[Rfam]
A member of the RNA family "t44 RNA" from Citrobacter youngae, 87 nucleotides long. By type it is a small RNA. Rfam's curators write: This family consists of a number of bacterial RNA genes of between 135 and 170 bases in length. On this family, see Tjaden et al., Nucleic Acids Res 2002: "Transcriptome analysis of Escherichia coli using high-density oligonucleotide probe arrays". The sequence is in the family's curated seed alignment. The organism belongs to Citrobacter youngae, within Bacteria.
RNA sequence: CUCACUUUGUGUAACAACACACACGUAUCGGCACAUAUUCCGGGGUGCCCUUUGGGGUCGGUAAUAUGGGAUGCGUGGAGGCUUAAC
Numbered sequence: 001c002u003c004a005c006u007u008u009g010u011g012u013a014a015c016a017a018c019a020c021a022c023a024c025g026u027a028u029c030g031g032c033a034c035a036u037a038u039u040c041c042g043g044g045g046u047g048c049c050c051u052u053u054g055g056g057g058u059c060g061g062u063a064a065u066a067u068g069g070g071a072u073g074c075g076u077g078g079a080g081g082c083u084u085a086a087c
Stems, first nucleotide, its partner, number of pairs: 022077008034068005040061003047058004